[Rfam]
Record summary:
The record is a 96-nucleotide RNA from Oscillibacter sp. CAG:155, which matches "Glycine riboswitch aptamer" in Rfam.
RNA sequence: GGAUGUGGCUCUGGAGAAGCUCAGAAACGAGUACCGAAGGUGCAAGGCGGCUGUAUGGCUGCUGAAUCUCUCAGGUAAAAGGACAGAGUAGAGGGU
Numbered sequence: 001g002g003a004u005g006u007g008g009c010u011c012u013g014g015a016g017a018a019g020c021u022c023a024g025a026a027a028c029g030a031g032u033a034c035c036g037a038a039g040g041u042g043c044a045a046g047g048c049g050g051c052u053g054u055a056u057g058g059c060u061g062c063u064g065a066a067u068c069u070c071u072c073a074g075g076u077a078a079a080a081g082g083a084c085a086g087a088g089u090a091g092a093g094g095g096u
Stems, first nucleotide, its partner, number of pairs: 006091001008089006020031003033076003036072002040070001042068001046063005
From the family's description: This family represents the bacterial glycine riboswitch.